The family of this 373-nucleotide RNA sequence from Microlunatus phosphovorus is "transfer-messenger RNA".
[Rfam]
RNA sequence: GGGGGUGAUCGGUUUCGACUUGGGUCGGUAGACCCAGGAGAAGCGGGCCGAGAAACCAAGGUCAACUCGUUAAUGUCCCUUGGAAACCAAUAAGUGCCAAGUCUGAACAGCGCACUGACUUCGCUCUCGCUGCCUGAUCAGUGAUCGAAGGGUCAGCCCGGGCGUGCCUCCGUCCCGGAUCCUGGCCUCAUCAAGGAGGCUUACCAGCUAGGAGUGGUCCCAGGACCUAGCCGGAACAUGAACUGAGACUGGGCCUGUCUGCAACGUGCUGAUGCGAGUGCAGGGGCCGAGAAGAACGAAACCAUCAGCUGCGCCCGGAGAAGCCCUGGCUCAUCGCUCGAGGACGCGGGUUCGAUUCCCGCCACCUCCACCC
Dot-bracket structure: (((((((...........(((((((.(...((.(((((.....((((([[[[...((((((....]]]]........))))))...........................................((((((......))))))......((((((.(((((((.[[[[[)))).)))...)))))).......].]]]]...((.((((((...[[[[.[....)))))).))..........].]]]].(((((..(((...((.[[[[..[))....)))))))).............]...]]]]...))))).......))))).)).).)))))))...(((((.......))))))))))))....
A reference for the family is Williams and Bartel (1996), "Phylogenetic analysis of tmRNA secondary structure", RNA. It is annotated as a non-coding RNA gene. A search with the family's covariance model found it, with a score of 163 bits. Bacterial tmRNA, also known as 10Sa RNA or SsrA, is named for its dual tRNA and mRNA-like properties.